[Rfam]
RNA: Avian HBV RNA encapsidation signal epsilon
RNA sequence: UACCAAGGUAUCUUUACGACUUCCUUGCUGUUGCUGCUUGCUGUACCUUGGGUA
Numbered sequence: 001u002a003c004c005a006a007g008g009u010a011u012c013u014u015u016a017c018g019a020c021u022u023c024c025u026u027g028c029u030g031u032u033g034c035u036g037c038u039u040g041c042u043g044u045a046c047c048u049u050g051g052g053u054a
Stems, first nucleotide, its partner, number of pairs: 001054004006049001007047005018041001020040001027034002